[Rfam]
RNA: Mammalian CPEB3 ribozyme
Organism: Crocodylus porosus
RNA sequence: AUUGCAAGUUUGAGGCCAUAGCAGAAGUGCUCACAGCAUGGCACUGAAAGACUCCAGCAAAUCUGUGAAUUCUGCU
Numbered sequence: 001a002u003u004g005c006a007a008g009u010u011u012g013a014g015g016c017c018a019u020a021g022c023a024g025a026a027g028u029g030c031u032c033a034c035a036g037c038a039u040g041g042c043a044c045u046g047a048a049a050g051a052c053u054c055c056a057g058c059a060a061a062u063c064u065g066u067g068a069a070u071u072c073u074g075c076u
Stems, first nucleotide, its partner, number of pairs: 015042003020076007027039003049064003053060001